Background: mir-166 microRNA precursor family: a 125-nucleotide RNA from Brassica carinata. This family represents the plant microRNA (miRNA) precursor mir-166. The base pairs follow the family's consensus structure, which was predicted with PFOLD. Its family is annotated with RISC complex and miRNA-mediated post-transcriptional gene silencing in the Gene Ontology. A search with the family's covariance model found it, with a score of 77 bits.

[Rfam]
RNA sequence: UUUGAGGGGAUUGUUGUCUGGCACGAGGCCCUUAACUCAGAUCUACGAUCGGUUAUAUAAAUAUAUUAUAUGAACGAUCAGUUAAGUGGUUUGAUGACGUCGGACCAGGCUUCAUUCCCCUCAGU
Dot-bracket structure: .(((((((((.((..((((((..(((.........................................................................)))..))))))..)).))))))))).